RNA sequence: AUGGGGACUAGCCCGGGUGGUUAGGCGUCACCUGUUGCCCGAAACCGCCGAUACGCGGGGGGCGAUAGUCCGGAGAUGGCUUUGGCGAUCUGUCUGAAGCUGUCAUUUCCUGACUGCGAAGCCUUGUCCCAUGAGGUCAAUGGAGGGGAUUCUGGAUAUUCCGGAGGGAAUAUCCUGCCCCUUGUCGCGGAGACUGGCCCAGGCCCGGAAGGGAGCAGGCUUACCGUGAACAUUCGGCGCCCAUGGGGGUGCGGGGUGGAGGAUGGAGUGGCAGAAUAUGGCAGGCACGUAUUGUCUACCCCGGAUAUGUCCCUAU
Numbered sequence: 001a002u003g004g005g006g007a008c009u010a011g012c013c014c015g016g017g018u019g020g021u022u023a024g025g026c027g028u029c030a031c032c033u034g035u036u037g038c039c040c041g042a043a044a045c046c047g048c049c050g051a052u053a054c055g056c057g058g059g060g061g062g063c064g065a066u067a068g069u070c071c072g073g074a075g076a077u078g079g080c081u082u083u084g085g086c087g088a089u090c091u092g093u094c095u096g097a098a099g100c101u102g103u104c105a106u107u108u109c110c111u112g113a114c115u116g117c118g119a120a121g122c123c124u125u126g127u128c129c130c131a132u133g134a135g136g137u138c139a140a141u142g143g144a145g146g147g148g149a150u151u152c153u154g155g156a157u158a159u160u161c162c163g164g165a166g167g168g169a170a171u172a173u174c175c176u177g178c179c180c181c182u183u184g185u186c187g188c189g190g191a192g193a194c195u196g197g198c199c200c201a202g203g204c205c206c207g208g209a210a211g212g213g214a215g216c217a218g219g220c221u222u223a224c225c226g227u228g229a230a231c232a233u234u235c236g237g238c239g240c241c242c243a244u245g246g247g248g249g250u251g252c253g254g255g256g257u258g259g260a261g262g263a264u265g266g267a268g269u270g271g272c273a274g275a276a277u278a279u280g281g282c283a284g285g286c287a288c289g290u291a292u293u294g295u296c297u298a299c300c301c302c303g304g305a306u307a308u309g310u311c312c313c314u315a316u
Stems, first nucleotide, its partner, number of pairs: 001316008011063004015033007038059004066307002069305005075299001078296003085288001089285006097277001100274007108267003114261002121257007128247006135240001136238003140233003143182001145180003152177001154175009185229006196221004204213003
A member of the RNA family "Archaeal signal recognition particle RNA" from Methanogenium marinum, 316 nucleotides long. Lineage of the source: Archaea > Methanobacteriati > Methanobacteriota > Methanomicrobia > Methanogenium. It scores 187 bits against the family's covariance model. It is annotated as a non-coding RNA gene.